This 144-nucleotide RNA sequence from Molossus molossus belongs to the Rfam family "Small nucleolar RNA SNORA48". From the family's description: The snoRNA ACA 48 has been identified to guide pseudouridylation of the residue U3797 in the 28S rRNA subunit. By type it is an H/ACA-box small nucleolar RNA. A reference for the family is Ofengand and Bakin (1997), "Mapping to nucleotide resolution of pseudouridine residues in large subunit ribosomal RNAs from representative eukaryotes, prokaryotes, archaebacteria, mitochondria and chloroplasts", J Mol Biol.
RNA sequence: CCCCCUGGUAUUGGGCAAGGAGACACCUGAUUGGUGGUGUUGGUCUUAUAUCAAUCAAGGGCAAAGCACAUGUACAGUCCUUAGUUCAUCCUAGCUUGAUGCCCGUAUUAGUGGCCAGAACUGUUUCAUGCCUGAGGCAUAUAA
Number, nucleotide and partner (000 for none) at each position: 001c000002c061003c060004c059005c000006u057007g056008g000009u000010a000011u054012u053013g052014g051015g000016c000017a000018a047019g046020g045021a000022g041023a040024c039025a038026c037027c036028u000029g000030a000031u000032u000033g000034g000035u000036g027037g026038u025039g024040u023041u022042g000043g000044u000045c020046u019047u018048a000049u000050a000051u014052c013053a012054a011055u000056c007057a006058a000059g004060g003061g002062c000063a000064a000065a000066g000067c000068a000069c000070a000071u000072g000073u000074a000075c000076a000077g000078u000079c000080c000081u000082u000083a000084g138085u137086u136087c000088a000089u000090c000091c000092u000093a000094g000095c000096u000097u000098g132099a000100u130101g000102c000103c000104c000105g127106u000107a000108u000109u123110a122111g000112u120113g000114g000115c000116c000117a000118g000119a000120a112121c000122u110123g109124u000125u000126u000127c105128a000129u000130g100131c000132c098133u000134g000135a000136g086137g085138c084139a000140u000141a000142u000143a000144a000